CyVA-1 RNA: a 77-nucleotide RNA from Coleofasciculus sp. FACHB-SPT36.
The family's consensus secondary structure is taken from published work.
It scores 75 bits against the family's covariance model.
By type it is a small RNA.
From the family's description: Cyanobacteria, Acidobacteria (1 example), Verrucomicrobia (1 example).
Nucleotides: 077
Base pairs, nucleotide, nucleotide: 001077003075004074005073006072009032010031011030012029037069038068039067040066041065042064043063044062
Number, partner (000 for none) and nucleotide at each position: 001077a002000c003075a004074c005073c006072g007000g008000a009032u010031g011030g012029g013000c014000g015000u016000u017000a018000u019000g020000c021000c022000g023000c024000a025000g026000u027000g028000g029012c030011c031010c032009a033000g034000a035000a036000u037069c038068g039067g040066a041065c042064a043063u044062c045000a046000a047000a048000g049000a050000a051000g052000a053000g054000c055000g056000a057000c058000g059000u060000c061000a062044g063043a064042u065041g066040u067039c068038c069037g070000a071000a072006c073005g074004g075003u076000u077001u